[Rfam]
RNA: U11 spliceosomal RNA
Organism: Rhododendron williamsianum
RNA sequence: AAAAAGGGUUGGUUGGCUAAAUAUGCCAUGUCCGCCCUAGUUAUGUGGGUGCUGUAUGGCUAUCAAGACAUAUGGCCAACAUAAUUUGUGGGACUUCUAUAGGGUUGGCUUGCUUUGGCUGACCCUCCA
Numbered sequence: 001a002a003a004a005a006g007g008g009u010u011g012g013u014u015g016g017c018u019a020a021a022u023a024u025g026c027c028a029u030g031u032c033c034g035c036c037c038u039a040g041u042u043a044u045g046u047g048g049g050u051g052c053u054g055u056a057u058g059g060c061u062a063u064c065a066a067g068a069c070a071u072a073u074g075g076c077c078a079a080c081a082u083a084a085u086u087u088g089u090g091g092g093a094c095u096u097c098u099a100u101a102g103g104g105u106u107g108g109c110u111u112g113c114u115u116u117g118g119c120u121g122a123c124c125c126u127c128c129a
Stems, first nucleotide, its partner, number of pairs: 008080005014028004029051007052075007101126008110118003